[Rfam]
RNA sequence: AUGCAGGGCGUCUAGGGUUCCGCCUCACUCUCUCCCUUGAGGGUCUGGUCCAAGAGACGCCACCGGCCGGGCAAAUUCCCGGCGGGACACGGCGGGGCAAAAACCCGGGAGAA
Numbered sequence: 001a002u003g004c005a006g007g008g009c010g011u012c013u014a015g016g017g018u019u020c021c022g023c024c025u026c027a028c029u030c031u032c033u034c035c036c037u038u039g040a041g042g043g044u045c046u047g048g049u050c051c052a053a054g055a056g057a058c059g060c061c062a063c064c065g066g067c068c069g070g071g072c073a074a075a076u077u078c079c080c081g082g083c084g085g086g087a088c089a090c091g092g093c094g095g096g097g098c099a100a101a102a103a104c105c106c107g108g109g110a111g112a113a
Stems, first nucleotide, its partner, number of pairs: 007061006015051002020048002022045001023042005063086002066083005088108001090111001094106003